[Rfam]
RNA sequence: AGCGCCCGGACGGGCGACGGCAGUCGAUCAUCGUAUGCUGCCGCCGCCGGCACGGGCGCA
Numbered sequence: 001a002g003c004g005c006c007c008g009g010a011c012g013g014g015c016g017a018c019g020g021c022a023g024u025c026g027a028u029c030a031u032c033g034u035a036u037g038c039u040g041c042c043g044c045c046g047c048c049g050g051c052a053c054g055g056g057c058g059c060a
Base pairs, nucleotide, nucleotide: 002059003058004057005056006055013048014047015046016045018043019042020041021040022039023038024037025033026032
gabT RNA: a 60-nucleotide RNA from Pseudomonas mangiferae. The family's RNA type in Rfam is cis-regulatory element. The family's consensus secondary structure is taken from published work.